[Rfam]
Rfam assigns this 74-nucleotide RNA from Jaculus jaculus to the family "Small nucleolar RNA SNORD113/SNORD114 family". The organism belongs to Jaculus, within Eukaryota. Rfam's curators write: The imprinted human domain at 14q32 contains two clusters of tandemly repeated small nucleolar RNAs named 14q(I) and 14q(II) snoRNAs. Clan: SNORD74 clan. The base pairs follow the family's consensus structure, which is taken from published work. The match comes from Rfam's covariance-model search (48 bits). Gene Ontology terms of the family: nucleolus and RNA processing.

RNA sequence: AGGAUCAAUGACGACAACAGUUGAGUGUGAGUUGCUCAUAGUGAACGUUGAGUGUUUGAAACUCUGAGGUCCAG
Numbered sequence: 001a002g003g004a005u006c007a008a009u010g011a012c013g014a015c016a017a018c019a020g021u022u023g024a025g026u027g028u029g030a031g032u033u034g035c036u037c038a039u040a041g042u043g044a045a046c047g048u049u050g051a052g053u054g055u056u057u058g059a060a061a062c063u064c065u066g067a068g069g070u071c072c073a074g
Base pairs, nucleotide, nucleotide: 002072003071004070005069006068